RNA sequence: GAGGCGAUAUCGAUUUGAAAUCGAAUUGCACUCCAAUGGGCAGACUUAAGUUAGACAGGUAAGUAGUACAGAGUUUCCAAGAUCGCAUGGAUUCUGCUCUGAGCCGAUGAGGACCGAGACAGAAAG
Number, nucleotide and partner (000 for none) at each position: 001g033002a032003g031004g029005c028006g027007a026008u025009a000010u024011c023012g022013a021014u020015u019016u000017g000018a000019a015020a014021u013022c012023g011024a010025a008026u007027u006028g005029c004030a000031c003032u002033c001034c000035a000036a000037u000038g000039g000040g000041c000042a000043g000044a000045c000046u000047u000048a000049a000050g000051u000052u000053a000054g000055a000056c000057a000058g000059g000060u000061a000062a000063g000064u000065a000066g000067u000068a000069c000070a000071g000072a000073g000074u000075u000076u000077c000078c000079a000080a000081g000082a000083u000084c000085g000086c000087a000088u000089g000090g000091a000092u000093u000094c122095u121096g120097c118098u117099c116100u000101g114102a000103g000104c112105c111106g000107a000108u000109g000110a000111g105112g104113a000114c101115c000116g099117a098118g097119a000120c096121a095122g094123a000124a000125a000126g000
Shown here is a 126-nucleotide sequence from Paenibacillus apis, a member of the family "pan motif".